[Rfam]
RNA sequence: AUACGCCUGCGCUGUACGCUCUUCUACCGGGUAUUUUCUUGAGCCUAUUUUAUACCUUGGGGAUCAACCGCUGGCUCUGUGUGUAUGUCCGCUAGCCGGAAAACCUAAUGAGACGGAUGCGAUUCCCACUUGAACCAAGGGUUCAAGGACAAUGGUAGUGGCGGCAGUCUGGGUGUAUC
Numbered sequence: 001a002u003a004c005g006c007c008u009g010c011g012c013u014g015u016a017c018g019c020u021c022u023u024c025u026a027c028c029g030g031g032u033a034u035u036u037u038c039u040u041g042a043g044c045c046u047a048u049u050u051u052a053u054a055c056c057u058u059g060g061g062g063a064u065c066a067a068c069c070g071c072u073g074g075c076u077c078u079g080u081g082u083g084u085a086u087g088u089c090c091g092c093u094a095g096c097c098g099g100a101a102a103a104c105c106u107a108a109u110g111a112g113a114c115g116g117a118u119g120c121g122a123u124u125c126c127c128a129c130u131u132g133a134a135c136c137a138a139g140g141g142u143u144c145a146a147g148g149a150c151a152a153u154g155g156u157a158g159u160g161g162c163g164g165c166a167g168u169c170u171g172g173g174u175g176u177a178u179c
Stems, first nucleotide, its partner, number of pairs: 002177008011168005017163003036149010059127003063123003071116003075112003083104002088100004

The family of this 179-nucleotide RNA sequence from Ectothiorhodospiraceae bacterium BW-2 is "6S / SsrS RNA".
Lineage of the source: Bacteria > Pseudomonadati > Pseudomonadota > Gammaproteobacteria > Ectothiorhodospiraceae.
It scores 82 bits against the family's covariance model.
Pairs were carried over by alignment from the consensus structure, which is taken from published work.